[Rfam]
RNA sequence: AUCUUUGUGUUUGGGGCAAUGACGCAGCUAGUGAGGUUUUAACCGAGGCGCGUCUUUUGCUGGUUGAAAACUAUUUCCAAACCCCCUUUUAUGCCUAGGUUCUUCCCUGGACUUUGAGAAUUUUUGGAAGGGCUCCCUUCGGGGUAAAGUC
Numbered sequence: 001a002u003c004u005u006u007g008u009g010u011u012u013g014g015g016g017c018a019a020u021g022a023c024g025c026a027g028c029u030a031g032u033g034a035g036g037u038u039u040u041a042a043c044c045g046a047g048g049c050g051c052g053u054c055u056u057u058u059g060c061u062g063g064u065u066g067a068a069a070a071c072u073a074u075u076u077c078c079a080a081a082c083c084c085c086c087u088u089u090u091a092u093g094c095c096u097a098g099g100u101u102c103u104u105c106c107c108u109g110g111a112c113u114u115u116g117a118g119a120a121u122u123u124u125u126g127g128a129a130g131g132g133c134u135c136c137c138u139u140c141g142g143g144g145u146a147a148a149g150u151c
Stems, first nucleotide, its partner, number of pairs: 021054005027049003035044003087118003091114001093112001095110005131151004
RNA: U4 spliceosomal RNA
Organism: Hibiscus trionum